RNA sequence: AAAAAAGCAGAGAUCUGUUACCAUUUGUGAACUGGUCUCUCGUAACCUUCAGGGAGAGAAAUUGCAAUGUUAUUGGGUGAACCUCUUGAGUUCUGAUGAUUAAUGGUUCAGUAAACAAUGUUACAUAA
Numbered sequence: 001a002a003a004a005a006a007g008c009a010g011a012g013a014u015c016u017g018u019u020a021c022c023a024u025u026u027g028u029g030a031a032c033u034g035g036u037c038u039c040u041c042g043u044a045a046c047c048u049u050c051a052g053g054g055a056g057a058g059a060a061a062u063u064g065c066a067a068u069g070u071u072a073u074u075g076g077g078u079g080a081a082c083c084u085c086u087u088g089a090g091u092u093c094u095g096a097u098g099a100u101u102a103a104u105g106g107u108u109c110a111g112u113a114a115a116c117a118a119u120g121u122u123a124c125a126u127a128a
Stems, first nucleotide, its partner, number of pairs: 005049003011038002014035002017032001065120002068117004078110006
The family of this 128-nucleotide RNA from Olea europaea is "Small nucleolar RNA snoR74". The source organism's lineage runs through Eukaryota, Tracheophyta, Mesangiospermae, Oleeae and Olea europaea. Pairs were carried over by alignment from the consensus structure, which was predicted with WAR. The match comes from Rfam's covariance-model search (93 bits). Rfam links the family to the GO terms RNA processing and nucleolus. The family's RNA type in Rfam is H/ACA-box small nucleolar RNA.